[Rfam]
RNA sequence: UAACGUUUGCUACACUCUGGGACUUAGUUUAAUUCCACACUAUUUCCCUAUUUACGUACAAACAAGAUAGACUUUAGGACACCUACUCACCGAGAUAGCCGAAAAUUUCGUGGUUAUGUUGGUCCAUUUCAGUGUCAGACAU
Numbered sequence: 001u002a003a004c005g006u007u008u009g010c011u012a013c014a015c016u017c018u019g020g021g022a023c024u025u026a027g028u029u030u031a032a033u034u035c036c037a038c039a040c041u042a043u044u045u046c047c048c049u050a051u052u053u054a055c056g057u058a059c060a061a062a063c064a065a066g067a068u069a070g071a072c073u074u075u076a077g078g079a080c081a082c083c084u085a086c087u088c089a090c091c092g093a094g095a096u097a098g099c100c101g102a103a104a105a106u107u108u109c110g111u112g113g114u115u116a117u118g119u120u121g122g123u124c125c126a127u128u129u130c131a132g133u134g135u136c137a138g139a140c141a142u
Base pairs, nucleotide, nucleotide: 007061008060009059019048020047021046022045025042026041027040028039078136079135080134090122091121092120093119095117096116097115098114099113100112
Rfam assigns this 142-nucleotide RNA sequence from Zygosaccharomyces rouxii to the family "Small nucleolar RNA snR80". NCBI's taxonomy places the organism under Eukaryota, Fungi, Dikarya, Saccharomycetes, Zygosaccharomyces. Gene Ontology terms of the family: nucleolus and RNA processing. Pairs were carried over by alignment from the consensus structure, which was predicted with WAR.